RNA sequence: GCCCUCUUCAACGCUGCGUUUCCAUGCUACAAACGGAGAAUGAAAAGAGCCUUCGGGCUCUUUUCAAUCUCGAUUUCUUUUUCGCAUGUGGGAAAUUCGGAGAAAGCUUCAAAGCAGGAGGUGGAUACGUUCCUCUCUUGUGCUCGUUUUCCAUGCCUGGAGCGCCCUUGUGGCCUCCCGACGUGUGUCUAUCGAGUCUGCCUGUGAUGGCCUGGCGUCACCCCGACGUCUGCAACAGACAUCAGAAAUCUCAGGCCCGGGAGAACCUGCGUGUAUACUUCGGGAAGACGUGGGUUUAUCUCGGUGUCCUAUGGGAAGUCGUUGCGAAGCUUGUUGCGCAAACUUGAGUGCGAUAUGCAGCGUUCGUUUUGCUUCGGCGAAACGAAUCACACAAUUCCGAUCAUUCUGUUGAGGGC
Numbered sequence: 001g002c003c004c005u006c007u008u009c010a011a012c013g014c015u016g017c018g019u020u021u022c023c024a025u026g027c028u029a030c031a032a033a034c035g036g037a038g039a040a041u042g043a044a045a046a047g048a049g050c051c052u053u054c055g056g057g058c059u060c061u062u063u064u065c066a067a068u069c070u071c072g073a074u075u076u077c078u079u080u081u082u083c084g085c086a087u088g089u090g091g092g093a094a095a096u097u098c099g100g101a102g103a104a105a106g107c108u109u110c111a112a113a114g115c116a117g118g119a120g121g122u123g124g125a126u127a128c129g130u131u132c133c134u135c136u137c138u139u140g141u142g143c144u145c146g147u148u149u150u151c152c153a154u155g156c157c158u159g160g161a162g163c164g165c166c167c168u169u170g171u172g173g174c175c176u177c178c179c180g181a182c183g184u185g186u187g188u189c190u191a192u193c194g195a196g197u198c199u200g201c202c203u204g205u206g207a208u209g210g211c212c213u214g215g216c217g218u219c220a221c222c223c224c225g226a227c228g229u230c231u232g233c234a235a236c237a238g239a240c241a242u243c244a245g246a247a248a249u250c251u252c253a254g255g256c257c258c259g260g261g262a263g264a265a266c267c268u269g270c271g272u273g274u275a276u277a278c279u280u281c282g283g284g285a286a287g288a289c290g291u292g293g294g295u296u297u298a299u300c301u302c303g304g305u306g307u308c309c310u311a312u313g314g315g316a317a318g319u320c321g322u323u324g325c326g327a328a329g330c331u332u333g334u335u336g337c338g339c340a341a342a343c344u345u346g347a348g349u350g351c352g353a354u355a356u357g358c359a360g361c362g363u364u365c366g367u368u369u370u371g372c373u374u375c376g377g378c379g380a381a382a383c384g385a386a387u388c389a390c391a392c393a394a395u396u397c398c399g400a401u402c403a404u405u406c407u408g409u410u411g412a413g414g415g416c
Base pairs, nucleotide, nucleotide: 001416002415003414004413009408010407013361014360015359016358017357018356019355023088024087025086026085036079037078038077039076040075098399099398100397101396102395107329108328109327110326200212202210203209214230215229216228217227218226219225232325233324234323235322236321238319253310254309255308362387363386364385365384366383367382368381369380370379371378

The record is a 416-nucleotide sequence from Trichoderma gamsii, which matches "Nuclear RNase P" in Rfam. Taxonomically the source falls in Trichoderma (Eukaryota, Opisthokonta, Dikarya, Hypocreomycetidae). About the family: Ribonuclease P (RNase P) is a ubiquitous endoribonuclease, found in archaea, bacteria and eukarya as well as chloroplasts and mitochondria. Its best characterised activity is the generation of mature 5'-ends of tRNAs by cleaving the 5'-leader elements of precursor-tRNAs. Cellular RNase Ps are ribonucleoproteins. RNA from bacterial RNase Ps retains its catalytic activity in the absence of the protein subunit, i.e. it is a ribozyme. Isolated eukaryotic and archaeal RNase P RNA has not been shown to retain its catalytic function, but is still essential for the catalytic activity of the holoenzyme. Although the archaeal and eukaryotic holoenzyme s have a much greater protein content than the bacterial ones, the RNA cores from all the three lineages are homologous -- helices corresponding to P1, P2, P3, P4, and P10/11 are common to all cellular RNase P RNAs. Yet, there is considerable sequence variation, particularly among the eukaryotic RNAs.